[Rfam]
RNA sequence: AGAGGCCCUCCGAUGGCGGCUUGCGGGCUUGCCCUGACACAGUCAGAGGCUUGCCCUGACGCAGUCAGGGAGCAGCCAUCAAACCACCUUGCGCUGCAUAUCCGGGAAACCGAUAUGUGGUGAGCGGUAAGGAAAAACGGGGACUUUGAUCCCUGUAGGU
Numbered sequence: 001a002g003a004g005g006c007c008c009u010c011c012g013a014u015g016g017c018g019g020c021u022u023g024c025g026g027g028c029u030u031g032c033c034c035u036g037a038c039a040c041a042g043u044c045a046g047a048g049g050c051u052u053g054c055c056c057u058g059a060c061g062c063a064g065u066c067a068g069g070g071a072g073c074a075g076c077c078a079u080c081a082a083a084c085c086a087c088c089u090u091g092c093g094c095u096g097c098a099u100a101u102c103c104g105g106g107a108a109a110c111c112g113a114u115a116u117g118u119g120g121u122g123a124g125c126g127g128u129a130a131g132g133a134a135a136a137a138c139g140g141g142g143a144c145u146u147u148g149a150u151c152c153c154u155g156u157a158g159g160u
Stems, first nucleotide, its partner, number of pairs: 012080006019073004085159001087132006093121002096118003100114003104111001137156006
The record is a 160-nucleotide RNA sequence from Lunatimonas lonarensis, which matches "Group II catalytic intron D1-D4-2" in Rfam. The pairing is the family consensus, mapped onto this sequence. Rfam's curators write: Group II introns are found in rRNA, tRNA and mRNA of organelles in fungi, plants and protists, and also in mRNA in bacteria. The match comes from Rfam's covariance-model search (67 bits).